[Rfam]
RNA sequence: ACUUCGGAGAGGAGGUGGUUCGGCAGAUGUAUGAAUACCGGACGGAAGAGGUGACUGCGGGCUAGCGGCCCGCCACCACACCCAGUGCGGUGCCGGACCAGCGUGCGAAACAGGCACGCAGCCGGCCGUAAUUCCAAGCAGUCACCCGACCCGCGAGCCGCCGGUACGUCCGGCCGGCUUCCCCGGCCUCACGGCAGGGGAACCACGGCUCGCGGGUCGCUCCGU
Dot-bracket structure: ..............(((((..................................))))).((((.((.((..(((......................................)))..)).)).))))...................(((((((((((((((((((.......))))))............................)))))))))))))......
Numbered sequence: 001a002c003u004u005c006g007g008a009g010a011g012g013a014g015g016u017g018g019u020u021c022g023g024c025a026g027a028u029g030u031a032u033g034a035a036u037a038c039c040g041g042a043c044g045g046a047a048g049a050g051g052u053g054a055c056u057g058c059g060g061g062c063u064a065g066c067g068g069c070c071c072g073c074c075a076c077c078a079c080a081c082c083c084a085g086u087g088c089g090g091u092g093c094c095g096g097a098c099c100a101g102c103g104u105g106c107g108a109a110a111c112a113g114g115c116a117c118g119c120a121g122c123c124g125g126c127c128g129u130a131a132u133u134c135c136a137a138g139c140a141g142u143c144a145c146c147c148g149a150c151c152c153g154c155g156a157g158c159c160g161c162c163g164g165u166a167c168g169u170c171c172g173g174c175c176g177g178c179u180u181c182c183c184c185g186g187c188c189u190c191a192c193g194g195c196a197g198g199g200g201a202a203c204c205a206c207g208g209c210u211c212g213c214g215g216g217u218c219g220c221u222c223c224g225u
Stems, first nucleotide, its partner, number of pairs: 015058005060127004065122002068119002072115003147219013160178006